[Rfam]
RNA sequence: ACUGGAGGACCAAGAAGGCUGAGUCUGAUGAAGCAAGACUUUGCUGAUACACUCCUCCUAGAAAAAAGGGUUGAAGAGAGCAGCCCUCGUUGGAGAAAAUUUUGGGGCUGACUGUACGACCCAACAUUC
Numbered sequence: 001a002c003u004g005g006a007g008g009a010c011c012a013a014g015a016a017g018g019c020u021g022a023g024u025c026u027g028a029u030g031a032a033g034c035a036a037g038a039c040u041u042u043g044c045u046g047a048u049a050c051a052c053u054c055c056u057c058c059u060a061g062a063a064a065a066a067a068g069g070g071u072u073g074a075a076g077a078g079a080g081c082a083g084c085c086c087u088c089g090u091u092g093g094a095g096a097a098a099a100u101u102u103u104g105g106g107g108c109u110g111a112c113u114g115u116a117c118g119a120c121c122c123a124a125c126a127u128u129c
Stems, first nucleotide, its partner, number of pairs: 002061002004058006017045003021041006068122004079113002081110007092101002
The family of this 129-nucleotide sequence from Marmota monax is "Small Cajal body specific RNA 4".
Rfam 15.1 lists 634 matches to the family in 510 species.
The base pairs follow the family's consensus structure, which was predicted with RNAfold.
It scores 142 bits against the family's covariance model.
The source organism's lineage runs through Eukaryota, Opisthokonta, Gnathostomata, Tetrapoda and Marmota.
scaRNAs are a specific class of small nuclear RNAs which localise to the Cajal bodies and guide the modification of RNA polymerase II transcribed spliceosomal RNAs U1, U2, U4, U5 and U12. ACA26 belongs to the H/ACA box class of guide RNAs as it has the predicted hairpin-hinge-hairpin-tail structure, conserved H/ACA-box motifs and is found associated with GAR1.